RNA sequence: AUGCGCGCAAGGAAGGACAUGGCUGUCCUUGGGUACUAACUACACCCCGCCCCCA
Numbered sequence: 001a002u003g004c005g006c007g008c009a010a011g012g013a014a015g016g017a018c019a020u021g022g023c024u025g026u027c028c029u030u031g032g033g034u035a036c037u038a039a040c041u042a043c044a045c046c047c048c049g050c051c052c053c054c055a
Stems, first nucleotide, its partner, number of pairs: 005050003013030006031047004
Shown here is a 55-nucleotide RNA from Culex flavivirus, a member of the family "Insect-Specific Flavivirus 3' UTR repeats Ra".
For this family Rfam cites "Genetic characterization of a new insect flavivirus isolated from Culex pipiens mosquito in Japan" (Hoshino et al., Virology, 2007).